[Rfam]
RNA sequence: GUGCUUGCAGGUGCAGCACCAUCAAGAUUCACAUGGUCCAACUCAUGCAUCUUCAGUGAUGCUCAUGUGAUGGCUCGCAGUUGCUAUAUAUGCAUAUGUGAUGAGAUGAGAAUCUUGAUGAUGCUGCAUCAGCAGACAC
Numbered sequence: 001g002u003g004c005u006u007g008c009a010g011g012u013g014c015a016g017c018a019c020c021a022u023c024a025a026g027a028u029u030c031a032c033a034u035g036g037u038c039c040a041a042c043u044c045a046u047g048c049a050u051c052u053u054c055a056g057u058g059a060u061g062c063u064c065a066u067g068u069g070a071u072g073g074c075u076c077g078c079a080g081u082u083g084c085u086a087u088a089u090a091u092g093c094a095u096a097u098g099u100g101a102u103g104a105g106a107u108g109a110g111a112a113u114c115u116u117g118a119u120g121a122u123g124c125u126g127c128a129u130c131a132g133c134a135g136a137c138a139c
Stems, first nucleotide, its partner, number of pairs: 010130009020120011032108002